[Rfam]
RNA: t44 RNA
Organism: Vibrio caribbeanicus
RNA sequence: CUAUAUUUUUAAAUCACACACAUUUCGACACAUAUUCCGGGGUGCCAAUGAAAAAUUGGUCGGAAUUAUGGGGAAUGUGGAGGCCUAAC
Numbered sequence: 001c002u003a004u005a006u007u008u009u010u011a012a013a014u015c016a017c018a019c020a021c022a023u024u025u026c027g028a029c030a031c032a033u034a035u036u037c038c039g040g041g042g043u044g045c046c047a048a049u050g051a052a053a054a055a056u057u058g059g060u061c062g063g064a065a066u067u068a069u070g071g072g073g074a075a076u077g078u079g080g081a082g083g084c085c086u087a088a089c
Stems, first nucleotide, its partner, number of pairs: 019079008031070004036064004044060005
Dot-bracket structure: ..................((((((((....((((.((((....(((((.......)))))))))..)))).))))))))..........